The record is a 76-nucleotide sequence from Parabacteroides sp. An277, which matches "Bacteroidetes FopS (family of paralogous sRNAs)" in Rfam. The family has 12 seed sequences and 822 matches in Rfam 15.1. NCBI's taxonomy places the organism under Bacteria, Pseudomonadati, Bacteroidota, Bacteroidia, Parabacteroides. The literature on the family includes a 2025 paper in Nat Commun by Ruttiger et al., "The global RNA-binding protein RbpB is a regulator of polysaccharide utilization in Bacteroides thetaiotaomicron". It is annotated as a small RNA. Pairs were carried over by alignment from the consensus structure, which is taken from published work. The RNA-binding protein RbpB and BTncRNA_FopS sRNA are involved in the post-transcription regulation of polysaccharide utilisation loci (PUL). FopS sRNAs function as post-transcriptional repressors by binding to the vicinity of the start codon of the first mRNA of target PUL polycistrons, typically corresponding to the cognate SusC homolog, impeding translation of the respective glycan transporter.
[Rfam]
RNA sequence: GUGUUUUUCAUGGUAUUAGAUUUAAGGUUAGCAAUUGAAGAUUGGUUGUCGGGAUGACAACCUUUCCUUUUUUAUA
Numbered sequence: 001g002u003g004u005u006u007u008u009c010a011u012g013g014u015a016u017u018a019g020a021u022u023u024a025a026g027g028u029u030a031g032c033a034a035u036u037g038a039a040g041a042u043u044g045g046u047u048g049u050c051g052g053g054a055u056g057a058c059a060a061c062c063u064u065u066c067c068u069u070u071u072u073u074a075u076a
Stems, first nucleotide, its partner, number of pairs: 044062007